The family of this 81-nucleotide sequence from Pluralibacter gergoviae is "sroB RNA". Rfam classes the family as a small RNA.

[Rfam]
RNA sequence: GGGAUCCCGACAUAAGCCGGGAAUAAUAAUAACGAUGAAAUUCCUCUUUGACGGGCCAAUAGCGAUAUUGGCCAUUUUUUU
Number, nucleotide and partner (000 for none) at each position: 001g000002g018003g017004a000005u015006c000007c000008c000009g000010a000011c000012a000013u000014a000015a005016g000017c003018c002019g000020g000021g000022a000023a000024u000025a000026a000027u032028a000029a000030u000031a000032a027033c000034g000035a000036u000037g000038a000039a000040a000041u000042u000043c000044c000045u000046c000047u000048u000049u000050g000051a000052c000053g000054g073055g072056c071057c070058a069059a068060u067061a066062g000063c000064g000065a000066u061067a060068u059069u058070g057071g056072c055073c054074a000075u000076u000077u000078u000079u000080u000081u000